[Rfam]
The family of this 72-nucleotide RNA from Altererythrobacter lutimaris is "terC RNA".
RNA sequence: UGCGCGGGCCGGGCCCCUCUGGCAGGUGUGAAGAGCGAAUUCGCUCGGCACCUGUGAUGUCGGACCGCAUCG
Numbered sequence: 001u002g003c004g005c006g007g008g009c010c011g012g013g014c015c016c017c018u019c020u021g022g023c024a025g026g027u028g029u030g031a032a033g034a035g036c037g038a039a040u041u042c043g044c045u046c047g048g049c050a051c052c053u054g055u056g057a058u059g060u061c062g063g064a065c066c067g068c069a070u071c072g
Stems, first nucleotide, its partner, number of pairs: 006066002009063004022055008

Lineage of the source: Bacteria > Pseudomonadati > Sphingomonadales > Erythrobacteraceae > Altererythrobacter. The base pairs follow the family's consensus structure, which is taken from published work. By type it is a cis-regulatory element.